[Rfam]
RNA sequence: UGGGUAGUAUCUUUUAGAGCUACACCAGAUAUUUUUCAUUAGAUUAUUAUUUUUAACAACUCAUAUCUAUAAGAAUGAGAUUGAAAU
Numbered sequence: 001u002g003g004g005u006a007g008u009a010u011c012u013u014u015u016a017g018a019g020c021u022a023c024a025c026c027a028g029a030u031a032u033u034u035u036u037c038a039u040u041a042g043a044u045u046a047u048u049a050u051u052u053u054u055a056a057c058a059a060c061u062c063a064u065a066u067c068u069a070u071a072a073g074a075a076u077g078a079g080a081u082u083g084a085a086a087u
Stems, first nucleotide, its partner, number of pairs: 001027003004023005010018002057083003060079005066074002
Shown here is an 87-nucleotide sequence from Clostridium sp. SM-530-WT-3G, a member of the family "pan motif". Taxonomically the source falls in Clostridium (Bacteria, Bacillati, Clostridia, Clostridiaceae). Pairs were carried over by alignment from the consensus structure, which is taken from published work.